Shown here is a 66-nucleotide sequence from Musa balbisiana, a member of the family "Plastid-clpP 5UTR RNA". The base pairs follow the family's consensus structure, which was predicted with LocARNA. Rfam's curators write: Plastid clpP is a non-coding RNA (ncRNA) recognised in plastids. It was found in the prime untranslated region (5UTR) of a protease complex subunit (clpP) in plastids, suggesting a posible cis-regulatory function. Taxonomically the source falls in Musa (Eukaryota, Spermatophyta, Magnoliopsida, Zingiberales). For this family Rfam cites "Retrograde signaling in plants: A critical review focusing on the GUN pathway and beyond" (Richter et al., Plant Commun, 2023).
RNA sequence: AAUUCUGUUUCGUAAGACACGAUAAGCAGAUUUAUUCUAUACCCAUCGUACCAAUACGCAAUGGGG
Numbered sequence: 001a002a003u004u005c006u007g008u009u010u011c012g013u014a015a016g017a018c019a020c021g022a023u024a025a026g027c028a029g030a031u032u033u034a035u036u037c038u039a040u041a042c043c044c045a046u047c048g049u050a051c052c053a054a055u056a057c058g059c060a061a062u063g064g065g066g
Stems, first nucleotide, its partner, number of pairs: 003021001006019005042065003048057003